[Rfam]
RNA sequence: AUUUACCGCGGACCAUGUCGCUGGUUGGCUAAGGCCGACGAGAGGAAAGUCCGGACAACACAGAGCACCACGCUUCCUAACAGGAAGGAUCCCGGUUCCGGGAGACAGCAAGUGCAGCAGAGAGUAGACCGCCUCAACUUCGCGUUGAGGUAAGGGUGAAAGGGUGGGGUAAGAGCCCACCGGUAUGGAUGGCAACAUUCAUAGCCAGGUAAACCUCGUGGGUUGAAAUGUCGCGUAUACCGAUGCGCCGUCGCAAGACGGAUAAGAGCUGCUCGCUCAAUGUCGGGGGGUAGGCAGAUAGAGCCUCAUGGUGACAUGAGGCCUAGAUAAAUGACGUGGAUUGUUUCGGCAAUAACAGAAUCCGGCUUAUGAGCGGUAUCUUUCA
Number, nucleotide and partner (000 for none) at each position: 001a381002u000003u000004u378005a377006c376007c375008g374009c373010g000011g370012a000013c339014c338015a337016u336017g335018u334019c333020g000021c042022u041023g000024g039025u038026u037027g036028g035029c034030u000031a000032a000033g000034g029035c028036c027037g026038a025039c024040g000041a022042g021043a000044g000045g000046a000047a368048a367049g366050u000051c365052c364053g363054g362055a361056c225057a224058a223059c222060a000061c000062a000063g274064a273065g272066c271067a000068c221069c220070a219071c218072g217073c087074u086075u085076c084077c083078u000079a000080a000081c000082a000083g077084g076085a075086a074087g073088g106089a000090u103091c102092c101093c100094g099095g000096u000097u000098c000099c094100g093101g092102g091103a090104g000105a000106c088107a216108g215109c000110a000111a000112g214113u213114g210115c209116a000117g000118c000119a000120g000121a000122g000123a000124g000125u000126a000127g000128a000129c155130c154131g151132c150133c149134u148135c147136a146137a145138c144139u000140u000141c000142g000143c000144g138145u137146u136147g135148a134149g133150g132151u131152a000153a000154g130155g129156g000157u000158g000159a000160a000161a000162g000163g181164g180165u179166g178167g177168g176169g000170u000171a000172a000173g000174a000175g000176c168177c167178c166179a165180c164181c163182g000183g205184u203185a202186u201187g200188g199189a198190u197191g196192g000193c000194a000195a000196c191197a190198u189199u188200c187201a186202u185203a184204g000205c183206c000207a000208g000209g115210u114211a000212a000213a113214c112215c108216u107217c072218g071219u070220g069221g068222g059223u058224u057225g056226a000227a000228a000229u296230g295231u294232c293233g000234c000235g000236u000237a000238u000239a000240c286241c285242g284243a283244u282245g000246c000247g000248c000249c000250g000251u000252c000253g000254c000255a000256a000257g000258a000259c000260g000261g000262a000263u000264a000265a000266g278267a277268g276269c275270u000271g066272c065273u064274c063275g269276c268277u267278c266279a000280a000281u000282g244283u243284c242285g241286g240287g000288g000289g000290g000291u000292a000293g232294g231295c230296a229297g000298a000299u000300a000301g000302a000303g322304c321305c320306u319307c318308a317309u316310g315311g000312u000313g000314a000315c310316a309317u308318g307319a306320g305321g304322c303323c000324u000325a000326g000327a000328u000329a000330a000331a000332u000333g019334a018335c017336g016337u015338g014339g013340a000341u000342u000343g000344u000345u000346u000347c000348g000349g000350c000351a000352a000353u000354a000355a000356c000357a000358g000359a000360a000361u055362c054363c053364g052365g051366c049367u048368u047369a000370u011371g000372a000373g009374c008375g007376g006377u005378a004379u000380c000381u001382u000383u000384c000385a000
Bacterial RNase P class A: a 385-nucleotide sequence from Phaeocystidibacter luteus. The match comes from Rfam's covariance-model search (248 bits). NCBI's taxonomy places the organism under Bacteria, Pseudomonadati, Flavobacteriia, Flavobacteriales, Phaeocystidibacter. It is annotated as a ribozyme. Rfam's curators write: Ribonuclease P (RNase P) is a ubiquitous endoribonuclease, found in archaea, bacteria and eukarya as well as chloroplasts and mitochondria. Its best characterised activity is the generation of mature 5'-ends of tRNAs by cleaving the 5'-leader elements of precursor-tRNAs. Cellular RNase Ps are ribonucleoproteins. RNA from bacterial RNase Ps retains its catalytic activity in the absence of the protein subunit, i.e. it is a ribozyme.